This 83-nucleotide RNA from Synaphobranchus kaupii belongs to the Rfam family "Mammalian CPEB3 ribozyme".
The match comes from Rfam's covariance-model search (61 bits).
RNA sequence: ACUUGAUUGCAGGGGAUCAAGGUAGAAGCGUUCACGUCGCGAUCCCUGUCAAGUAAUACUUGGUAUUACCUGCAAAUUCUACC
Number, nucleotide and partner (000 for none) at each position: 001a000002c000003u000004u000005g000006a000007u000008u000009g000010c000011a000012g000013g046014g045015g044016a043017u042018c041019a000020a000021g083022g082023u081024a080025g079026a078027a077028g040029c039030g038031u000032u000033c000034a000035c000036g000037u000038c030039g029040c028041g018042a017043u016044c015045c014046c013047u000048g000049u000050c072051a071052a000053g069054u068055a067056a066057u065058a064059c063060u000061u000062g000063g059064u058065a057066u056067u055068a054069c053070c000071u051072g050073c000074a000075a000076a000077u027078u026079c025080u024081a023082c022083c021

From the family's description: The mammalian CPEB3 ribozyme is a self cleaving RNA located in the second intron of the CPEB3 gene which belongs to a family of genes regulating messenger RNA polyadenylation. This ribozyme is highly conserved and found only in mammals. The CPEB3 ribozyme is structurally and biochemically related to the human hepatitis delta virus (HDV) ribozyme and the HDV ribozyme is proposed to have arisen from the human transcriptome.
Gene Ontology term of the family: RNA nuclease activity.